[Rfam]
RNA sequence: AAAGGUGUGAGGAGUGAAGUGAACUACGAAAAAUCCCCGAAGUCGAAACAAGGUAAGACGCUCGGGGAUUUUUCGUA
Numbered sequence: 001a002a003a004g005g006u007g008u009g010a011g012g013a014g015u016g017a018a019g020u021g022a023a024c025u026a027c028g029a030a031a032a033a034u035c036c037c038c039g040a041a042g043u044c045g046a047a048a049c050a051a052g053g054u055a056a057g058a059c060g061c062u063c064g065g066g067g068a069u070u071u072u073u074c075g076u077a
Stems, first nucleotide, its partner, number of pairs: 030072005037065004042059003
Rfam assigns this 77-nucleotide sequence from Leptolyngbyaceae cyanobacterium JSC-12 to the family "Cyano-1 RNA". It scores 47 bits against the family's covariance model.